This 47-nucleotide RNA from Massilimicrobiota sp. An134 belongs to the Rfam family "PreQ1 (pre queuosine) riboswitch aptamer". The literature on the family includes a 2019 paper in Nat Commun by Connelly et al., "Synthetic ligands for PreQ(1) riboswitches provide structural and mechanistic insights into targeting RNA tertiary structure". Rfam 15.1 lists 873 matches to the family in 692 species. From the family's description: This family is a bacterial riboswitch that binds to the metabolite preQ1, an intermediate in the biosynthesis of the modified nucleoside queuosine from GTP. One example of this riboswitch is located in the leader of the Bacillus subtilis ykvJKLM (queCDEF) operon which encodes four genes necessary for queuosine production. PreQ1 binding to the riboswitch aptamer is thought to induce premature transcription termination within the leader to down-regulate expression of these genes.
[Rfam]
RNA sequence: CAUACACUGGUUCGAGAGCCAAACCCAGUAUAAAAAACUAAGGAAAA
Dot-bracket structure: .....(((((.....[........))))).........]........